Nucleotides: 266
Stems, first nucleotide, its partner, number of pairs: 001266006009058003012030004017025001019023001035055005064259007073250004079243004085237003092233002094230006102223002107218003115213001118210006124201006130192002133190005138183001140181004149174004157166003
Number, partner (000 for none) and nucleotide at each position: 001266c002265c003264g004263u005262g006261c007000u008000a009058g010057a011056c012030g013029g014028g015027g016000a017025g018000g019023u020000a021000g022000c023019g024000g025017u026000g027015c028014c029013c030012u031000g032000u033000a034000a035055c036054u037053c038052g039051c040000a041000a042000u043000c044000c045000g046000c047000u048000a049000u050000a051039g052038c053037g054036a055035g056011g057010u058009u059000g060000a061000a062000u063000u064259c065258c066257u067256g068255u069254u070253u071000g072000a073250g074249g075248u076247c077000u078000u079243g080242u081241c082240a083000c084000g085237c086236a087235g088000g089000u090000u091000c092233c093232g094230g095229c096228g097227c098226g099225u100000u101000a102223g103222g104000c105000g106000u107218u108217g109216u110000g111000u112000c113000g114000a115213u116000a117000g118210c119209a120208a121207g122206g123205u124201c125200c126199u127198u128197c129196g130192c131191a132000a133190g134189g135188g136187a137186c138183g139000c140181c141180c142179a143178u144000g145000a146000a147000c148000c149174c150173g151172g152171u153000c154000a155000g156000g157166u158165c159164c160000g161000g162000a163000a164159g165158g166157a167000a168000g169000c170000a171152g172151c173150c174149g175000u176000a177000a178143g179142u180141g181140g182000u183138c184000a185000c186137g187136u188135u189134c190133u191131u192130g193000u194000g195000u196129u197128g198127a199126g200125g201124g202000g203000c204000a205123g206122c207121c208120u209119u210118g211000a212000a213115g214000g215000a216109g217108c218107a219000a220000u221000g222103c223102c224000u225099g226098c227097g228096c229095g230094u231000c232093c233092g234000g235087c236086u237085g238000g239000a240082u241081g242080g243079c244000a245000a246000c247076g248075a249074u250073c251000g252000g253070g254069a255068g256067c257066a258065g259064g260000u261006g262005c263004a264003c265002g266001g
A member of the RNA family "Bacterial large signal recognition particle RNA" from Cohnella fermenti, 266 nucleotides long. Its family is annotated with signal recognition particle, plasma membrane targeting and SRP-dependent cotranslational protein targeting to membrane, signal sequence recognition in the Gene Ontology. About the family: The signal recognition particle (SRP) is a universally conserved ribonucleoprotein involved in the co-translational targeting of proteins to membranes. The literature on the family includes a 2003 paper in Nucleic Acids Res by Rosenblad et al., "SRPDB: Signal Recognition Particle Database". Pairs were carried over by alignment from the consensus structure, which is taken from published work. The match comes from Rfam's covariance-model search (192 bits).